[Rfam]
RNA: azaaromatic riboswitch aptamer (yjdF RNA)
Organism: Ruminococcaceae bacterium CPB6
RNA sequence: AACAGCAGAGAUAAAAACACGGUCCGGUUGGUAGUCCGGGCGCGGCUGUGACCGUCAGUAACCUGCCUCCUUGGUUGUCCUUUCUCCGCUUUCUAUAU
Numbered sequence: 001a002a003c004a005g006c007a008g009a010g011a012u013a014a015a016a017a018c019a020c021g022g023u024c025c026g027g028u029u030g031g032u033a034g035u036c037c038g039g040g041c042g043c044g045g046c047u048g049u050g051a052c053c054g055u056c057a058g059u060a061a062c063c064u065g066c067c068u069c070c071u072u073g074g075u076u077g078u079c080c081u082u083u084c085u086c087c088g089c090u091u092u093c094u095a096u097a098u
Stems, first nucleotide, its partner, number of pairs: 004090003008086004022041006042055004065075003
Dot-bracket structure: ...(((.((((..........((((((........))))))((((......)))).........(((.....))).......)))).)))........